[Rfam]
RNA sequence: GGCAAAUGAUGUCGUUCUCACGAUGGUCUUCCAAGUCCCCUGGUGAACGGGCUCUGACGAGACUGCCGCAAGGCUUUGCUGAUGCCUAGCA
Numbered sequence: 001g002g003c004a005a006a007u008g009a010u011g012u013c014g015u016u017c018u019c020a021c022g023a024u025g026g027u028c029u030u031c032c033a034a035g036u037c038c039c040c041u042g043g044u045g046a047a048c049g050g051g052c053u054c055u056g057a058c059g060a061g062a063c064u065g066c067c068g069c070a071a072g073g074c075u076u077u078g079c080u081g082a083u084g085c086c087u088a089g090c091a
Stems, first nucleotide, its partner, number of pairs: 001086004

Notes: A member of the RNA family "Small nucleolar RNA SNORD35" from Alligator sinensis, 91 nucleotides long. Its family is annotated with nucleolus and RNA processing in the Gene Ontology. The family's consensus secondary structure was predicted with PFOLD. Its Rfam clan is "SNORD35 clan". It is annotated as a C/D-box small nucleolar RNA. A search with the family's covariance model found it, with a score of 73 bits. Rfam 15.1 lists 1,842 matches to the family in 634 species. Rfam's curators write: U35 is a C/D box snoRNA located in intron 6 of ribosomal protein L13A and intron 3 of ribosomal protein S11 in humans and at homologous positions in mouse and chicken ribosomal protein genes. U35 guides the methylation of 2'-O-ribose sites in 28S rRNA.